[Rfam]
RNA sequence: UUUUAACGACUUACAGAACUCACAUGCACCGUCACAUGACUCAGGGUGCCCAAAGGUUUGAUGGUUCAUCGGAAAGAUCAAACCUGCCAGGGGUCGAACUCAUGGGGUGCGUGGAGGCAUAAC
Number, nucleotide and partner (000 for none) at each position: 001u000002u000003u000004u000005a000006a000007c000008g000009a000010c000011u000012u000013a000014c000015a000016g000017a000018a000019c000020u000021c000022a000023c113024a112025u111026g110027c109028a108029c107030c106031g000032u000033c000034a000035c104036a103037u102038g101039a100040c000041u097042c096043a000044g000045g000046g000047u000048g094049c093050c092051c091052a000053a000054a000055g000056g000057u000058u000059u000060g000061a000062u000063g000064g000065u000066u000067c000068a000069u000070c000071g000072g000073a000074a000075a000076g000077a000078u000079c000080a000081a000082a000083c000084c000085u000086g000087c000088c000089a000090g000091g051092g050093g049094u048095c000096g042097a041098a000099c000100u039101c038102a037103u036104g035105g000106g030107g029108u028109g027110c026111g025112u024113g023114g000115a000116g000117g000118c000119a000120u000121a000122a000123c000